[Rfam]
RNA sequence: UAGCAAACCUGUUCUAUCGCUCCGGCCGGAUGCCGGGGAGGAAAGUCCGGACAACGUAGAGCACCCCGCUUCCUAACGGGAAGGGUUUCGGCGAUGGCCGGAAUACGGAAAGUGCCACAGAAAAAAAACCGCCUGUGUUUCGGCAUAGGUAAGGGUGAAAACGUGGGGUAAGAGCCCACGGCUUUGCGUGGUGACACGCAUCGCGGUAAACCCCGGGGGUUGAAAGGCCAAAUAGGUUGCGGAGAUUAGGAGGUUGCUCGCUUCCAUCCCUCAUGGGAACCGCAACGGGUAGGCCGCUGGAGCUUGCCAGUGAUGGCAAGCCUAGAUAAAUGAUAGAAGUCCCAUGCACCUGCUGUAGCAGGCUAUUGGGAUACAGAAUCCGGCUUACAGGGUUUGCUUUUUU
Numbered sequence: 001u002a003g004c005a006a007a008c009c010u011g012u013u014c015u016a017u018c019g020c021u022c023c024g025g026c027c028g029g030a031u032g033c034c035g036g037g038g039a040g041g042a043a044a045g046u047c048c049g050g051a052c053a054a055c056g057u058a059g060a061g062c063a064c065c066c067c068g069c070u071u072c073c074u075a076a077c078g079g080g081a082a083g084g085g086u087u088u089c090g091g092c093g094a095u096g097g098c099c100g101g102a103a104u105a106c107g108g109a110a111a112g113u114g115c116c117a118c119a120g121a122a123a124a125a126a127a128a129c130c131g132c133c134u135g136u137g138u139u140u141c142g143g144c145a146u147a148g149g150u151a152a153g154g155g156u157g158a159a160a161a162c163g164u165g166g167g168g169u170a171a172g173a174g175c176c177c178a179c180g181g182c183u184u185u186g187c188g189u190g191g192u193g194a195c196a197c198g199c200a201u202c203g204c205g206g207u208a209a210a211c212c213c214c215g216g217g218g219g220u221u222g223a224a225a226g227g228c229c230a231a232a233u234a235g236g237u238u239g240c241g242g243a244g245a246u247u248a249g250g251a252g253g254u255u256g257c258u259c260g261c262u263u264c265c266a267u268c269c270c271u272c273a274u275g276g277g278a279a280c281c282g283c284a285a286c287g288g289g290u291a292g293g294c295c296g297c298u299g300g301a302g303c304u305u306g307c308c309a310g311u312g313a314u315g316g317c318a319a320g321c322c323u324a325g326a327u328a329a330a331u332g333a334u335a336g337a338a339g340u341c342c343c344a345u346g347c348a349c350c351u352g353c354u355g356u357a358g359c360a361g362g363c364u365a366u367u368g369g370g371a372u373a374c375a376g377a378a379u380c381c382g383g384c385u386u387a388c389a390g391g392g393u394u395u396g397c398u399u400u401u402u403u
Base pairs, nucleotide, nucleotide: 002398003397004396005395006394007393008392009391010390011388012338013337014336015335016334017333018332020038021037022036023035024034025033026032043386044385045384047383048382049381050380051379052222053221054220055219059272060271061270064218065217066216067215068214069083070082071081072080073079084106085104086103087102088101089100090099091098092097107213108212112211113210114207115206116205129154130153131150132149133148134147135146136145137144138143162180163179164178165177166176167175185200186199187198188197189196190195226295227294228293229292236286237285238284239283240282241281263277264276265275266274267273302321303320304319305318306317307316308315309314
The family of this 403-nucleotide sequence from Parapedobacter luteus is "Bacterial RNase P class A". Rfam's curators write: Ribonuclease P (RNase P) is a ubiquitous endoribonuclease, found in archaea, bacteria and eukarya as well as chloroplasts and mitochondria. Its best characterised activity is the generation of mature 5'-ends of tRNAs by cleaving the 5'-leader elements of precursor-tRNAs. Cellular RNase Ps are ribonucleoproteins. A search with the family's covariance model found it, with a score of 262 bits.